Notes
Shown here is a 324-nucleotide RNA from Glaucomycena venus, a member of the family "Group I catalytic intron".
RNA sequence: AACUAUGACUCAACCUUAUUAGGGUCAAAAAAGCGGCGUGAAAGCGUUUCGCUAGUCUUUCAGUCUUAGCUGAGGGCGACACUGUCAAAUUGCGGGAAAACCCCUAAAGCCUUCACCACCAAACCACUGUUGAAAAACGAGUGGUGGCCAGGGUAAUGACCUCGGGUAUGGUAAAAGCGUGAAGGAUGUAACAAUGGGCAAUCCGCAGCCAAGUCCUAAGGGUAGUAAACGACCUAUGGAUGCAGUUCAACGACUAGACGGCAGUGGGUGUUGCUUCUUGAAGCAAUGCUUAAGGUAUAGUCUACUCCCUUGCGAAAGCAAGGG
Numbered sequence: 001a002a003c004u005a006u007g008a009c010u011c012a013a014c015c016u017u018a019u020u021a022g023g024g025u026c027a028a029a030a031a032a033g034c035g036g037c038g039u040g041a042a043a044g045c046g047u048u049u050c051g052c053u054a055g056u057c058u059u060u061c062a063g064u065c066u067u068a069g070c071u072g073a074g075g076g077c078g079a080c081a082c083u084g085u086c087a088a089a090u091u092g093c094g095g096g097a098a099a100a101c102c103c104c105u106a107a108a109g110c111c112u113u114c115a116c117c118a119c120c121a122a123a124c125c126a127c128u129g130u131u132g133a134a135a136a137a138c139g140a141g142u143g144g145u146g147g148c149c150a151g152g153g154u155a156a157u158g159a160c161c162u163c164g165g166g167u168a169u170g171g172u173a174a175a176a177g178c179g180u181g182a183a184g185g186a187u188g189u190a191a192c193a194a195u196g197g198g199c200a201a202u203c204c205g206c207a208g209c210c211a212a213g214u215c216c217u218a219a220g221g222g223u224a225g226u227a228a229a230c231g232a233c234c235u236a237u238g239g240a241u242g243c244a245g246u247u248c249a250a251c252g253a254c255u256a257g258a259c260g261g262c263a264g265u266g267g268g269u270g271u272u273g274c275u276u277c278u279u280g281a282a283g284c285a286a287u288g289c290u291u292a293a294g295g296u297a298u299a300g301u302c303u304a305c306u307c308c309c310u311u312g313c314g315a316a317a318g319c320a321a322g323g324g
Base pairs, nucleotide, nucleotide: 002025003024004023006021007020080266081265082264083263084262086260091207092206093205094204095203096202101198102197103196105194208246209245213241214240215239216238221234222233223232225230250303252302253301254300255299256298268289269288270287271286272285273284274283275282276281309322310321311320312319313318
Taxonomically the source falls in Glaucomycena (Eukaryota, Fungi, Agaricomycotina, Agaricomycetidae). A search with the family's covariance model found it, with a score of 109 bits.